A member of the RNA family "PyrR binding site" from Anoxybacillus sp. B7M1, 150 nucleotides long. Rfam classes the family as a cis-regulatory element. Rfam describes the family as follows. This family represents the PyrR binding site and terminator structure.

RNA sequence: CCGCCUUUUAAUUAAGUCCUGUGAGACUUAAAAGGGUGUUGCUGUUCGCGCAAAAAAGAAAUGAAAGUCAUCAUAUGGGCUUUCUUUCUGCCUACCUUUUUGCGCCCAAAACUGUAGCACCCUGUCGAGUAAGGCAGGGUGCUUUUUUUA
Numbered sequence: 001c002c003g004c005c006u007u008u009u010a011a012u013u014a015a016g017u018c019c020u021g022u023g024a025g026a027c028u029u030a031a032a033a034g035g036g037u038g039u040u041g042c043u044g045u046u047c048g049c050g051c052a053a054a055a056a057a058g059a060a061a062u063g064a065a066a067g068u069c070a071u072c073a074u075a076u077g078g079g080c081u082u083u084c085u086u087u088c089u090g091c092c093u094a095c096c097u098u099u100u101u102g103c104g105c106c107c108a109a110a111a112c113u114g115u116a117g118c119a120c121c122c123u124g125u126c127g128a129g130u131a132a133g134g135c136a137g138g139g140u141g142c143u144u145u146u147u148u149u150a
Stems, first nucleotide, its partner, number of pairs: 004035005013030006058089001060087002063084007114145001116143011